[Rfam]
RNA sequence: CAGCAUGUUUCCAAAGGCUGUGGUGGGCUAUGGCCAUGGGAUCUCCAACUGCAUGCGAGAGCAACCCCGAGAGAAUUUGACAGCACAGGUCCGCGUAAUACGUACCCGCAGCUGCUAGAGCAAAGGUCAAAAAUAU
Numbered sequence: 001c002a003g004c005a006u007g008u009u010u011c012c013a014a015a016g017g018c019u020g021u022g023g024u025g026g027g028c029u030a031u032g033g034c035c036a037u038g039g040g041a042u043c044u045c046c047a048a049c050u051g052c053a054u055g056c057g058a059g060a061g062c063a064a065c066c067c068c069g070a071g072a073g074a075a076u077u078u079g080a081c082a083g084c085a086c087a088g089g090u091c092c093g094c095g096u097a098a099u100a101c102g103u104a105c106c107c108g109c110a111g112c113u114g115c116u117a118g119a120g121c122a123a124a125g126g127u128c129a130a131a132a133a134u135a136u
Stems, first nucleotide, its partner, number of pairs: 011039002016035007069128002083115002086108001088106002
RNA: Small nucleolar RNA SNORA44
Organism: Ursus americanus